Record summary: This 63-nucleotide RNA from Peribacillus saganii belongs to the Rfam family "Bacillaceae-1 RNA". The source organism's lineage runs through Bacteria, Bacillati, Bacillota, Bacilli and Peribacillus. A search with the family's covariance model found it, with a score of 43 bits.
RNA sequence: GACAAAGGAACGUCGACUAAGUUCUGGCACGUUCUGUGCCAAGCGUCGACGCCAGCACAUCCU
Numbered sequence: 001g002a003c004a005a006a007g008g009a010a011c012g013u014c015g016a017c018u019a020a021g022u023u024c025u026g027g028c029a030c031g032u033u034c035u036g037u038g039c040c041a042a043g044c045g046u047c048g049a050c051g052c053c054a055g056c057a058c059a060u061c062c063u
Base pairs, nucleotide, nucleotide: 011051012050013049014048015047016046017045026040027039028038029037030036